Overview:
The family of this 560-nucleotide RNA from Cristinia sonorae is "Nuclear RNase P". Lineage of the source: Eukaryota > Fungi > Agaricomycetes > Pleurotineae > Cristinia. It is annotated as a ribozyme.
RNA sequence: ACAGUCUCAAGACUGCGAUGCUCACCACAAACAGGUCACCGCUACCCAGCGUGUGCCCUCCUUCGUGAGCGGGAAGGUCUGAGCUUUCUACCCCGUCUUCGUUUCCAGACGAAUGCCGAUUUGCCACGAUCGAGCCAACGCACCAGCAAUUUACCUCGCACUUCCUUUUAACAGUUGUUAACCCCCGAUGAUCCGUAGGCAUGUCCACACUAUGGACCGGCAACCCCGCCCUUGCAAUCUCAUCUGUCUGGGCGGAGCACCUCGGAGAGGGGGCCAAGGAUUUGUACGGUUGGGACACGUUGGAGGGGUUGGGCUGGUUUGUAGGACACAACUGGAAUGACUAUCCCAUACACAAUCACCUUUUCUCAUUAUCAUUUGUACCUGCCUUUUAGGUGGGUCAUGAUGGUGGCGAAAGUUCUGUGGUUGCGCUUGGACGAGGUCAUUCGAGACCGCGUCAUGCCUCCAGUCCUGCAGUGCACUUCGCAGUUCGUCAACAAUUUUGUUCGCCUUUGUGGUGUUCAAUCUGUUACGAAACUCGAUUCAGACUACUCUGCGACUGU
Numbered sequence: 001a002c003a004g005u006c007u008c009a010a011g012a013c014u015g016c017g018a019u020g021c022u023c024a025c026c027a028c029a030a031a032c033a034g035g036u037c038a039c040c041g042c043u044a045c046c047c048a049g050c051g052u053g054u055g056c057c058c059u060c061c062u063u064c065g066u067g068a069g070c071g072g073g074a075a076g077g078u079c080u081g082a083g084c085u086u087u088c089u090a091c092c093c094c095g096u097c098u099u100c101g102u103u104u105c106c107a108g109a110c111g112a113a114u115g116c117c118g119a120u121u122u123g124c125c126a127c128g129a130u131c132g133a134g135c136c137a138a139c140g141c142a143c144c145a146g147c148a149a150u151u152u153a154c155c156u157c158g159c160a161c162u163u164c165c166u167u168u169u170a171a172c173a174g175u176u177g178u179u180a181a182c183c184c185c186c187g188a189u190g191a192u193c194c195g196u197a198g199g200c201a202u203g204u205c206c207a208c209a210c211u212a213u214g215g216a217c218c219g220g221c222a223a224c225c226c227c228g229c230c231c232u233u234g235c236a237a238u239c240u241c242a243u244c245u246g247u248c249u250g251g252g253c254g255g256a257g258c259a260c261c262u263c264g265g266a267g268a269g270g271g272g273g274c275c276a277a278g279g280a281u282u283u284g285u286a287c288g289g290u291u292g293g294g295a296c297a298c299g300u301u302g303g304a305g306g307g308g309u310u311g312g313g314c315u316g317g318u319u320u321g322u323a324g325g326a327c328a329c330a331a332c333u334g335g336a337a338u339g340a341c342u343a344u345c346c347c348a349u350a351c352a353c354a355a356u357c358a359c360c361u362u363u364u365c366u367c368a369u370u371a372u373c374a375u376u377u378g379u380a381c382c383u384g385c386c387u388u389u390u391a392g393g394u395g396g397g398u399c400a401u402g403a404u405g406g407u408g409g410c411g412a413a414a415g416u417u418c419u420g421u422g423g424u425u426g427c428g429c430u431u432g433g434a435c436g437a438g439g440u441c442a443u444u445c446g447a448g449a450c451c452g453c454g455u456c457a458u459g460c461c462u463c464c465a466g467u468c469c470u471g472c473a474g475u476g477c478a479c480u481u482c483g484c485a486g487u488u489c490g491u492c493a494a495c496a497a498u499u500u501u502g503u504u505c506g507c508c509u510u511u512g513u514g515g516u517g518u519u520c521a522a523u524c525u526g527u528u529a530c531g532a533a534a535c536u537c538g539a540u541u542c543a544g545a546c547u548a549c550u551c552u553g554c555g556a557c558u559g560u
Stems, first nucleotide, its partner, number of pairs: 001560004008553002012487007020070005034058002037055003079544005091308004103113003117132005135303006154289002488532004